The family of this 160-nucleotide RNA from Streptomyces sp. SDr-06 is "c-di-AMP riboswitch aptamer (ydaO/yuaA leader)".
The source organism's lineage runs through Bacteria, Bacillati, Kitasatosporales, Streptomycetaceae and Streptomyces.
About the family: This family represents a conserved RNA structure found upstream of the ydaO and yuaA genes in Bacillus subtilis and related genes in other bacteria.
Its family is annotated with regulation of gene expression and cyclic-di-AMP binding in the Gene Ontology.
[Rfam]
RNA sequence: GGACAGAGAUCGCCGAGUCCCCGAUGGCGCGAGCCAGGGGAGCCGGGGACCCACUCAGUCCCUGGGGUGAAUCGGACGCCUCCGCCCGCGGAGGAGCCCGUAGGAGACCUUCCUGCUCCGAACCCGUCAGCUAACCCGGUAGGCGAGAUGGAAGGAAAGG
Numbered sequence: 001g002g003a004c005a006g007a008g009a010u011c012g013c014c015g016a017g018u019c020c021c022c023g024a025u026g027g028c029g030c031g032a033g034c035c036a037g038g039g040g041a042g043c044c045g046g047g048g049a050c051c052c053a054c055u056c057a058g059u060c061c062c063u064g065g066g067g068u069g070a071a072u073c074g075g076a077c078g079c080c081u082c083c084g085c086c087c088g089c090g091g092a093g094g095a096g097c098c099c100g101u102a103g104g105a106g107a108c109c110u111u112c113c114u115g116c117u118c119c120g121a122a123c124c125c126g127u128c129a130g131c132u133a134a135c136c137c138g139g140u141a142g143g144c145g146a147g148a149u150g151g152a153a154g155g156a157a158a159g160g
Stems, first nucleotide, its partner, number of pairs: 011145004018041005042140006052064002065125003073100003103119004